[Rfam]
RNA sequence: AUUCGUCUUCAGGGCAGGGUGUAAUUCCCGACCGGCGGUAAAAGUCCGCGACCCACAUGAUAGUGGUUGAAUUGGUGUAACUCCAAUACCGACAGUAGAGUCUGGAUGGAAGAAGAGAAAU
Numbered sequence: 001a002u003u004c005g006u007c008u009u010c011a012g013g014g015c016a017g018g019g020u021g022u023a024a025u026u027c028c029c030g031a032c033c034g035g036c037g038g039u040a041a042a043a044g045u046c047c048g049c050g051a052c053c054c055a056c057a058u059g060a061u062a063g064u065g066g067u068u069g070a071a072u073u074g075g076u077g078u079a080a081c082u083c084c085a086a087u088a089c090c091g092a093c094a095g096u097a098g099a100g101u102c103u104g105g106a107u108g109g110a111a112g113a114a115g116a117g118a119a120a121u
Stems, first nucleotide, its partner, number of pairs: 003119001006116005017029003031101002033091002035049004044089002053066002071087005093104003
RNA: FMN riboswitch aptamer (RFN element)